[Rfam]
RNA sequence: GCCUAUGAUGAACUGCCCAUUGGUUAGAGGGUGUAGUUAGCUCAAGUUCCUGUUUAUCAGGAAGAACCUACUUGCCGCUGCUGCAUUCAAAUGAUAUUCAUGGGCUACCUGAGGU
Numbered sequence: 001g002c003c004u005a006u007g008a009u010g011a012a013c014u015g016c017c018c019a020u021u022g023g024u025u026a027g028a029g030g031g032u033g034u035a036g037u038u039a040g041c042u043c044a045a046g047u048u049c050c051u052g053u054u055u056a057u058c059a060g061g062a063a064g065a066a067c068c069u070a071c072u073u074g075c076c077g078c079u080g081c082u083g084c085a086u087u088c089a090a091a092u093g094a095u096a097u098u099c100a101u102g103g104g105c106u107a108c109c110u111g112a113g114g115u
Base pairs, nucleotide, nucleotide: 001115002114003113048062049061050060051059052058

The record is a 115-nucleotide sequence from Zizania palustris, which matches "Small nucleolar RNA Z278" in Rfam. About the family: snoZ278 is a C/D box small nucleolar RNA. Its methylation guide targets have not been reported. The base pairs follow the family's consensus structure, which was predicted with PFOLD. Rfam links the family to the GO terms nucleolus and RNA processing. Rfam classes the family as a C/D-box small nucleolar RNA.